RNA sequence: GCCGCAGGCCGCCUUAUCGCUAACGAUGCAAAUCGGGAGAGGAAAGUCCGGACACCAUAGGGAAGCAUAGCGGGUAACGCCCGUCGGUCUCGACAUUAAAAUCGGGGCAAGGACAAGUGCAACAGAAAGUAUGUACAGGUUAAGCUGUAGUGAAACCAGGUAAACUCUAUGUGGUGAAAUUUCAAGUAUAUCGGCAUUUAAGGGCUUCCCGUCCGUUGCCGAAGGGUAGAAAGAUAGAUCUCGCUGGUAACAACGAGACCAGAUAAAUGAUAAGGAUCUUGUCUUUCCCGCAAGGGGAUCAGGAUACAGAAUCCGGCUUACAGGCCUGCUUUUUUU
Numbered sequence: 001g002c003c004g005c006a007g008g009c010c011g012c013c014u015u016a017u018c019g020c021u022a023a024c025g026a027u028g029c030a031a032a033u034c035g036g037g038a039g040a041g042g043a044a045a046g047u048c049c050g051g052a053c054a055c056c057a058u059a060g061g062g063a064a065g066c067a068u069a070g071c072g073g074g075u076a077a078c079g080c081c082c083g084u085c086g087g088u089c090u091c092g093a094c095a096u097u098a099a100a101a102u103c104g105g106g107g108c109a110a111g112g113a114c115a116a117g118u119g120c121a122a123c124a125g126a127a128a129g130u131a132u133g134u135a136c137a138g139g140u141u142a143a144g145c146u147g148u149a150g151u152g153a154a155a156c157c158a159g160g161u162a163a164a165c166u167c168u169a170u171g172u173g174g175u176g177a178a179a180u181u182u183c184a185a186g187u188a189u190a191u192c193g194g195c196a197u198u199u200a201a202g203g204g205c206u207u208c209c210c211g212u213c214c215g216u217u218g219c220c221g222a223a224g225g226g227u228a229g230a231a232a233g234a235u236a237g238a239u240c241u242c243g244c245u246g247g248u249a250a251c252a253a254c255g256a257g258a259c260c261a262g263a264u265a266a267a268u269g270a271u272a273a274g275g276a277u278c279u280u281g282u283c284u285u286u287c288c289c290g291c292a293a294g295g296g297g298a299u300c301a302g303g304a305u306a307c308a309g310a311a312u313c314c315g316g317c318u319u320a321c322a323g324g325c326c327u328g329c330u331u332u333u334u335u336u
Stems, first nucleotide, its partner, number of pairs: 001332001004329007011321001012275007020039002024035004044319003048316005053176004060210004065172005070084005085111001087108007112167002117165002119161002134149001136147003180232004191222005202214004239258005245252002
A member of the RNA family "Bacterial RNase P class A" from Flavobacterium pallidum, 336 nucleotides long. Rfam's curators write: Ribonuclease P (RNase P) is a ubiquitous endoribonuclease, found in archaea, bacteria and eukarya as well as chloroplasts and mitochondria. Gene Ontology terms of the family: ribonuclease P activity, dimeric ribonuclease P complex and tRNA processing.